[Rfam]
RNA sequence: CCACACAGCAUUGUACCCAGACUCUGUCCCUGACAGUGCACCUGGCACUGUUAGGCUGGAGUUAAAUCAUUUU
Numbered sequence: 001c002c003a004c005a006c007a008g009c010a011u012u013g014u015a016c017c018c019a020g021a022c023u024c025u026g027u028c029c030c031u032g033a034c035a036g037u038g039c040a041c042c043u044g045g046c047a048c049u050g051u052u053a054g055g056c057u058g059g060a061g062u063u064a065a066a067u068c069a070u071u072u073u
Stems, first nucleotide, its partner, number of pairs: 005051004017045004023033002026030001

The family of this 73-nucleotide sequence from Octodon degus is "U1A polyadenylation inhibition element (PIE)". It is annotated as a cis-regulatory element. The source organism's lineage runs through Eukaryota, Eumetazoa, Tetrapoda, Mammalia and Octodon. The literature on the family includes a 2004 paper in Biochemistry by Clerte and Hall, "Global and Local Dynamics of the U1A Polyadenylation Inhibition Element (PIE) RNA and PIE RNA-U1A Complexes". Rfam's curators write: This family represents the U1A polyadenylation inhibition element (PIE). Pairs were carried over by alignment from the consensus structure, which is taken from published work.